[Rfam]
RNA sequence: GACCUAAACCGCUUGGGCGGCAUGGUUGUAACAAAAUCCAUCGCGAAAUGAAAAGCUCGUCGUCAGAGCACUAUUUCGCGAUGGUCAGUAUCGGAAACGAUACUGGGUAGCCUAGGCUACC
Dot-bracket structure: ((((....((((....))))...))))..........(((((((((((......((((.......))))....))))))))))).((((((((....))))))))((((((....))))))
RNA: LOOT RNA